[Rfam]
RNA sequence: GAAAAUUUAACUAAAUUACACACAUAUAUCGACACAUGUGCCGGGGUGCCUUCUCUUUAUUAAAAAGCAGAGGUCGGGGCAUGGGAUAUAUGGAGGCGUAAC
Dot-bracket structure: ......................((((((((....(((((.(((....(((((.................)))))))).))))).))))))))..........

This 102-nucleotide RNA from Aliidiomarina minuta belongs to the Rfam family "t44 RNA".
The family's RNA type in Rfam is small RNA.